This 143-nucleotide sequence from Flavobacteria bacterium BAL38 belongs to the Rfam family "Flavo-1 RNA". Rfam classes the family as a small RNA.
[Rfam]
RNA sequence: UUUUAGCCCAGAUAGAAAUGAAAAGCAUUUUACUGAAGAAUUCUAUUUUAUGUUGUGCUAAAAAAGCGACCUAAGAAGCUCUUUUUAGUGCUUACAAAAAAAGAAUUGUGGAUAAAAUCUUGAAAUGGAUAGCUGGAAUAACU
Dot-bracket structure: ........(((.((...((...(((...((((................................................................................))))..)))...))...)).)))........